[Rfam]
RNA sequence: ACCUUUCUGAUGUUGAUGAUACUGCAUCAGGAACUGACUGGAGAGCCAUGAGAGGCCAUCAGUUCCUGAUGCACUGCCUUCAGCAUUACAACA
Numbered sequence: 001a002c003c004u005u006u007c008u009g010a011u012g013u014u015g016a017u018g019a020u021a022c023u024g025c026a027u028c029a030g031g032a033a034c035u036g037a038c039u040g041g042a043g044a045g046c047c048a049u050g051a052g053a054g055g056c057c058a059u060c061a062g063u064u065c066c067u068g069a070u071g072c073a074c075u076g077c078c079u080u081c082a083g084c085a086u087u088a089c090a091a092c093a
Stems, first nucleotide, its partner, number of pairs: 023073005029067009039058003
Record summary
The record is a 93-nucleotide sequence from Anabas testudineus, which matches "mir-217 microRNA precursor family" in Rfam. The literature on the family includes a 2003 paper in Science by Lim et al., "Vertebrate microRNA genes". Gene Ontology terms of the family: miRNA-mediated post-transcriptional gene silencing and RISC complex. The source organism's lineage runs through Eukaryota, Teleostei, Clupeocephala, Euteleosteomorpha and Anabas.